[Rfam]
RNA sequence: AUAAUAUCUAUGUUAAAGCCAAAGACAGCAGGUGCAACAGCUUAAAUAUCCUGCCGAGGUUCGAAAAACAUUAUUUUUUUAAUGAUCGGAUUUACGUCUCACGGCUUUAGUGAGAUUUUUUUAUUUUGGGGG
Numbered sequence: 001a002u003a004a005u006a007u008c009u010a011u012g013u014u015a016a017a018g019c020c021a022a023a024g025a026c027a028g029c030a031g032g033u034g035c036a037a038c039a040g041c042u043u044a045a046a047u048a049u050c051c052u053g054c055c056g057a058g059g060u061u062c063g064a065a066a067a068a069c070a071u072u073a074u075u076u077u078u079u080u081a082a083u084g085a086u087c088g089g090a091u092u093u094a095c096g097u098c099u100c101a102c103g104g105c106u107u108u109a110g111u112g113a114g115a116u117u118u119u120u121u122u123a124u125u126u127u128g129g130g131g132g
Stems, first nucleotide, its partner, number of pairs: 028054005034041002096116007104108001
Overview
Ribosomal protein L10 leader: a 132-nucleotide RNA sequence from Peptoniphilus duerdenii. This family is a putative r-protein leader autoregulatory structure found in B. subtilis and other low-GC Gram-positive bacteria. It scores 71 bits against the family's covariance model. The organism belongs to Peptoniphilus duerdenii, within Bacteria. The family's consensus secondary structure was predicted with CMfinder.